[Rfam]
Nucleotides: 097
Stems, first nucleotide, its partner, number of pairs: 001097008011034005023083005036064001038054002069089005
Number, partner (000 for none) and nucleotide at each position: 001097g002096u003095u004094a005093u006092c007091u008090g009000a010000g011034g012033u013032g014031g015030a016000a017000g018000a019000u020000u021000u022000c023083g024082u025081a026080c027079c028000c029000g030015u031014c032013c033012a034011c035000a036064c037000g038054c039053c040000g041000a042000u043000g044000g045000u046000u047000u048000g049000a050000c051000a052000g053039g054038g055000g056000a057000a058000a059000c060000c061000c062000g063000a064036g065000a066000g067000a068000u069089g070088c071087a072086g073085g074000a075000g076000c077000a078000u079027g080026g081025u082024a083023c084000g085073c086072c087071u088070g089069c090008c091007a092006g093005a094004u095003a096002a097001c
The record is a 97-nucleotide RNA sequence from Enterocloster bolteae, which matches "skipping-rope RNA" in Rfam. It is annotated as a small RNA. Pairs were carried over by alignment from the consensus structure, which is taken from published work.